[Rfam]
RNA sequence: GGGUGAUGUCUACUGUACCCUUAUCAUUGUAGGCACUCGGUCAUGCUGUGGGACUUCGAUCCUUAGACGCCAGUCGUCGAGGGUGUGAUAUGAGGGUGGGUGAAAUGCCCU
Numbered sequence: 001g002g003g004u005g006a007u008g009u010c011u012a013c014u015g016u017a018c019c020c021u022u023a024u025c026a027u028u029g030u031a032g033g034c035a036c037u038c039g040g041u042c043a044u045g046c047u048g049u050g051g052g053a054c055u056u057c058g059a060u061c062c063u064u065a066g067a068c069g070c071c072a073g074u075c076g077u078c079g080a081g082g083g084u085g086u087g088a089u090a091u092g093a094g095g096g097u098g099g100g101u102g103a104a105a106u107g108c109c110c111u
Base pairs, nucleotide, nucleotide: 001020002019003018004017007035008034009033010032011031012030013029036094037093038092039091040089041088042087043086044085045084046083047082050063051062052061053060066078067077068076069075098110099109100108101107
Shown here is a 111-nucleotide RNA sequence from Paenibacillus mucilaginosus, a member of the family "epsC RNA". The organism belongs to Paenibacillus mucilaginosus, within Bacteria. The family's consensus secondary structure is taken from published work. The match comes from Rfam's covariance-model search (93 bits). It is annotated as a cis-regulatory element.